The record is a 34-nucleotide RNA, which matches "L31-Firmicutes ribosomal protein leader" in Rfam.
RNA sequence: CUUUAGGCUCAAAAGGAGUUUAAGGCGGAAGGAG
Numbered sequence: 001c002u003u004u005a006g007g008c009u010c011a012a013a014a015g016g017a018g019u020u021u022a023a024g025g026c027g028g029a030a031g032g033a034g
Stems, first nucleotide, its partner, number of pairs: 001025010
Rfam's curators put it in the seed alignment. It is annotated as a cis-regulatory leader. A reference for the family is Eckert and Weinberg (2020), "Discovery of 20 novel ribosomal leader candidates in bacteria and archaea", BMC Microbiol.